[Rfam]
RNA sequence: UAUUCCAAAACAACGAAAGCCCUGCCUCUCUUCCGUCCUUGCGGCUCCGAUGACCGCGCCAGUGCGAGUCGGAAAUAAUUCCAUGUC
Number, nucleotide and partner (000 for none) at each position: 001u000002a000003u000004u000005c000006c000007a000008a000009a000010a000011c000012a000013a000014c000015g000016a000017a000018a000019g000020c000021c000022c000023u000024g000025c000026c000027u000028c000029u000030c000031u000032u000033c000034c066035g065036u000037c000038c062039u061040u058041g057042c056043g055044g054045c000046u052047c000048c000049g000050a000051u000052g046053a000054c044055c043056g042057c041058g040059c000060c000061a039062g038063u000064g000065c035066g034067a000068g000069u000070c000071g000072g000073a000074a000075a000076u000077a000078a000079u000080u000081c000082c000083a000084u000085g000086u000087c000

A member of the RNA family "BsrC" from Paenibacillus beijingensis, 87 nucleotides long. The 301 nucleotide sequence from Kouji Nakamura has been trimmed to a highly conserved ~85 nucleotide long core to form this family. Pairs were carried over by alignment from the consensus structure, which was predicted with CMfinder. Taxonomically the source falls in Paenibacillus (Bacteria, Bacillati, Bacillota, Caryophanales). Rfam classes the family as a small RNA. A reference for the family is Saito et al. (2008), "Novel small RNA-encoding genes in the intergenic regions of Bacillus subtilis", Gene.